[Rfam]
RNA sequence: UGAUACCAGGGGCAAAAGGUCUAAACCCACAUGAGCUCGCUUAUAGGUGGGUGAAAGACCUUGUGAUCCACUCCCUGAUAUGAGCAUAAAAGUGGGAUGAUAAUCCCACGAUAUGCGAAUAUUGGGUAGGAUUGUGGGAGUGCAUAGCACGGAACAAUCCGUAGGUAUCA
Numbered sequence: 001u002g003a004u005a006c007c008a009g010g011g012g013c014a015a016a017a018g019g020u021c022u023a024a025a026c027c028c029a030c031a032u033g034a035g036c037u038c039g040c041u042u043a044u045a046g047g048u049g050g051g052u053g054a055a056a057g058a059c060c061u062u063g064u065g066a067u068c069c070a071c072u073c074c075c076u077g078a079u080a081u082g083a084g085c086a087u088a089a090a091a092g093u094g095g096g097a098u099g100a101u102a103a104u105c106c107c108a109c110g111a112u113a114u115g116c117g118a119a120u121a122u123u124g125g126g127u128a129g130g131a132u133u134g135u136g137g138g139a140g141u142g143c144a145u146a147g148c149a150c151g152g153a154a155c156a157a158u159c160c161g162u163a164g165g166u167a168u169c170a
Stems, first nucleotide, its partner, number of pairs: 001170007010068002013065001016062007026051005031044005074126008084116004092109007129160007140150004